[Rfam]
RNA sequence: UGUAGGGGAACAAAGGCUAAGUUCGCCACGUCCUGUGGCAACGCCUUUGUGACCUGCAUCCUGCAGG
Numbered sequence: 001u002g003u004a005g006g007g008g009a010a011c012a013a014a015g016g017c018u019a020a021g022u023u024c025g026c027c028a029c030g031u032c033c034u035g036u037g038g039c040a041a042c043g044c045c046u047u048u049g050u051g052a053c054c055u056g057c058a059u060c061c062u063g064c065a066g067g
Stems, first nucleotide, its partner, number of pairs: 011049007025039005053067005

A member of the RNA family "Bacillaceae-1 RNA" from Lentibacillus amyloliquefaciens, 67 nucleotides long. It is annotated as a small RNA. The base pairs follow the family's consensus structure, which is taken from published work. It scores 81 bits against the family's covariance model.